[Rfam]
RNA sequence: AUAGAUAUAAACUGUAAGUCGCUCUGGAUAAGAGCGUCUGCUAAAUGACGUAAA
Numbered sequence: 001a002u003a004g005a006u007a008u009a010a011a012c013u014g015u016a017a018g019u020c021g022c023u024c025u026g027g028a029u030a031a032g033a034g035c036g037u038c039u040g041c042u043a044a045a046u047g048a049c050g051u052a053a054a
Stems, first nucleotide, its partner, number of pairs: 013043001014041003020036006

Rfam assigns this 54-nucleotide RNA sequence from Coregonus sp. 'balchen' to the family "UnaL2 LINE 3' element".
Pairs were carried over by alignment from the consensus structure, which is taken from published work.
NCBI's taxonomy places the organism under Eukaryota, Metazoa, Craniata, Neopterygii, Coregonus.
Rfam classes the family as a cis-regulatory element.
Rfam 15.1 lists 493,311 matches to the family in 99 species.